[Rfam]
This 25-nucleotide RNA from Dryobates pubescens belongs to the Rfam family "CRISPR RNA direct repeat element". The family's consensus secondary structure was predicted with WAR. NCBI's taxonomy places the organism under Eukaryota, Teleostomi, Aves, Piciformes, Dryobates. Gene Ontology term of the family: defense response.

RNA sequence: CUUUUAACUCUUUCUGUGUUACUAC
Numbered sequence: 001c002u003u004u005u006a007a008c009u010c011u012u013u014c015u016g017u018g019u020u021a022c023u024a025c
Stems, first nucleotide, its partner, number of pairs: 005021004